[Rfam]
RNA sequence: UAUUAGGUUGGUUCAAAAGUGAUUGUGGUUUUUGUCAUUGAAAAUAAUGACAAAAACCGCAAUCACUUUUGUGUCAGCCUAAUA
Numbered sequence: 001u002a003u004u005a006g007g008u009u010g011g012u013u014c015a016a017a018a019g020u021g022a023u024u025g026u027g028g029u030u031u032u033u034g035u036c037a038u039u040g041a042a043a044a045u046a047a048u049g050a051c052a053a054a055a056a057c058c059g060c061a062a063u064c065a066c067u068u069u070u071g072u073g074u075c076a077g078c079c080u081a082a083u084a
Stems, first nucleotide, its partner, number of pairs: 001084012014071027
RNA: mir-548 microRNA precursor family
Organism: Colobus angolensis